[Rfam]
RNA sequence: UGAAUCCUUCGGGGCAGGGUGAAAUUCCCGACCGGCGGUGAUGGCACGAUUUGUUUGUGCCUCAGUCCGUGACCCGCAUGUUGCGGUGGACCCGGUGCAACUCCGGGACCGACAGUAUAGUCUGGAUGGGAGAAGGAUGAU
Numbered sequence: 001u002g003a004a005u006c007c008u009u010c011g012g013g014g015c016a017g018g019g020u021g022a023a024a025u026u027c028c029c030g031a032c033c034g035g036c037g038g039u040g041a042u043g044g045c046a047c048g049a050u051u052u053g054u055u056u057g058u059g060c061c062u063c064a065g066u067c068c069g070u071g072a073c074c075c076g077c078a079u080g081u082u083g084c085g086g087u088g089g090a091c092c093c094g095g096u097g098c099a100a101c102u103c104c105g106g107g108a109c110c111g112a113c114a115g116u117a118u119a120g121u122c123u124g125g126a127u128g129g130g131a132g133a134a135g136g137a138u139g140a141u
Base pairs, nucleotide, nucleotide: 004138005137006136007135008134009133010132017029018028019027031121032120033111034110035070036069037068038067065109066108074086075085091107092106093105094104095103113124114123115122
Dot-bracket structure: ...(((((((......(((.......))).[[((((((..........................[[))))...((.........))....(((((.......)))))]])).(((....]]))).......)))))))...
This 141-nucleotide RNA from Kroppenstedtia pulmonis belongs to the Rfam family "FMN riboswitch aptamer (RFN element)". The RFN element is a highly conserved domain that is found frequently in the 5'-untranslated regions of prokaryotic mRNAs that encode for flavin mononucleotide (FMN) biosynthesis and transport proteins. Its family is annotated with FMN binding in the Gene Ontology. NCBI's taxonomy places the organism under Bacteria, Bacillati, Bacillota, Thermoactinomycetaceae, Kroppenstedtia.